[Rfam]
RNA sequence: CCCUGACUAUUGCACCCCGCAAUAGACACUAGCCACGACAGGAGUGACACAUG
Numbered sequence: 001c002c003c004u005g006a007c008u009a010u011u012g013c014a015c016c017c018c019g020c021a022a023u024a025g026a027c028a029c030u031a032g033c034c035a036c037g038a039c040a041g042g043a044g045u046g047a048c049a050c051a052u053g
Stems, first nucleotide, its partner, number of pairs: 002042004007025005
RNA: Mu-gpT-DE RNA